[Rfam]
RNA sequence: GGCAAGUGAUGUCCUUUUCUCACGAUGGUCUGCGGAUGCCCAGGGCGGUGCCGAUAAUGCCACAGGCUCAGCUGAUGCCAAGAG
Numbered sequence: 001g002g003c004a005a006g007u008g009a010u011g012u013c014c015u016u017u018u019c020u021c022a023c024g025a026u027g028g029u030c031u032g033c034g035g036a037u038g039c040c041c042a043g044g045g046c047g048g049u050g051c052c053g054a055u056a057a058u059g060c061c062a063c064a065g066g067c068u069c070a071g072c073u074g075a076u077g078c079c080a081a082g083a084g
Stems, first nucleotide, its partner, number of pairs: 001079004

Shown here is an 84-nucleotide RNA sequence from Nannospalax galili, a member of the family "Small nucleolar RNA SNORD35". Taxonomically the source falls in Nannospalax (Eukaryota, Metazoa, Mammalia, Theria). It scores 80 bits against the family's covariance model. Its Rfam clan is "SNORD35 clan". The family's consensus secondary structure was predicted with PFOLD. A reference for the family is Nicoloso et al. (1996), "Intron-encoded, antisense small nucleolar RNAs: the characterization of nine novel species points to their direct role as guides for the 2'-O-ribose methylation of rRNAs", J Mol Biol. It is annotated as a C/D-box small nucleolar RNA.